[Rfam]
RNA sequence: ACCGGCCUGCUAAGCAGGUGCGCGAUCUACGCUGGUUGAACCAACAUUCAUUGAACAGGGGCUUUGACUCGUAUACAUGGCUCGGUGUGCAACGUCCGCCAGUCCGGAAUGCCUAAAGAGCCACGGCAGGGUCCCGCCGUCUUAGGACGGGUUCACCAGCGCUUCGACGCACGGCCCCGCGGGUCGGUC
Numbered sequence: 001a002c003c004g005g006c007c008u009g010c011u012a013a014g015c016a017g018g019u020g021c022g023c024g025a026u027c028u029a030c031g032c033u034g035g036u037u038g039a040a041c042c043a044a045c046a047u048u049c050a051u052u053g054a055a056c057a058g059g060g061g062c063u064u065u066g067a068c069u070c071g072u073a074u075a076c077a078u079g080g081c082u083c084g085g086u087g088u089g090c091a092a093c094g095u096c097c098g099c100c101a102g103u104c105c106g107g108a109a110u111g112c113c114u115a116a117a118g119a120g121c122c123a124c125g126g127c128a129g130g131g132u133c134c135c136g137c138c139g140u141c142u143u144a145g146g147a148c149g150g151g152u153u154c155a156c157c158a159g160c161g162c163u164u165c166g167a168c169g170c171a172c173g174g175c176c177c178c179g180c181g182g183g184u185c186g187g188u189c
Base pairs, nucleotide, nucleotide: 002187003186004185005184006183007182008181009180010179014175015174018172019171032159033158034157035156037155038154039153040152041151042150058135059134060133062131063130064129065128066127069125078123079122080121081120082119083118089112090111095108096107097106098105
The record is a 189-nucleotide sequence from Edaphobacter dinghuensis, which matches "6S / SsrS RNA" in Rfam. Rfam classes the family as a non-coding RNA gene. The base pairs follow the family's consensus structure, which is taken from published work. E. coli 6S RNA was the first non coding RNA to be sequenced, but its function was unknown until recently. It consists of 184 nucleotides that fold into an extended hairpin structure with a large single-stranded internal bulge. The 6S RNA specifically associates with RNA polymerase holoenzyme containing the sigma70 specificity factor. This interaction represses expression from a sigma70-dependent promoter during stationary phase. 6S RNA homologs have recently been identified in most bacterial genomes. Many Gram-positive species have two copies of 6S RNA. In Bacillus subtilis, both copies appear to interact with RNA polymerase holoenzyme containing the housekeeping sigma factor and be expressed during different stages of growth. In many proteobacteria, 6S RNA may be processed from a transcript encoding homologs of the E. coli YgfA protein which is a putative 5-formyltetrahydrofolate cycloligase activity. On this family, see Wassarman and Storz, Cell 2000: "6S RNA regulates E. coli RNA polymerase activity".